Source information:
Rfam assigns this 127-nucleotide RNA from Clostridium grantii to the family "c-di-AMP riboswitch aptamer (ydaO/yuaA leader)". Taxonomically the source falls in Clostridium grantii (Bacteria, Bacillati, Clostridiaceae, Clostridium).
RNA sequence: AUAUCCAUGAAGUCGAAUCCUCCUCAAAGGGGGUACCGGGGGUUAUAUUUUGGGGUGAAGCUUUUAUUAAGCAGGGGUCCUCUACUCUAACCCGUCAACUAACCCGGAAGACAUAAGGAGGAUACAA
Numbered sequence: 001a002u003a004u005c006c007a008u009g010a011a012g013u014c015g016a017a018u019c020c021u022c023c024u025c026a027a028a029g030g031g032g033g034u035a036c037c038g039g040g041g042g043u044u045a046u047a048u049u050u051u052g053g054g055g056u057g058a059a060g061c062u063u064u065u066a067u068u069a070a071g072c073a074g075g076g077g078u079c080c081u082c083u084a085c086u087c088u089a090a091c092c093c094g095u096c097a098a099c100u101a102a103c104c105c106g107g108a109a110g111a112c113a114u115a116a117g118g119a120g121g122a123u124a125c126a127a
Base pairs, nucleotide, nucleotide: 012112013111014110019033020032021031022030023029024028036107037106038105039104040103043052053093054092055091061071062070063069074087075086076085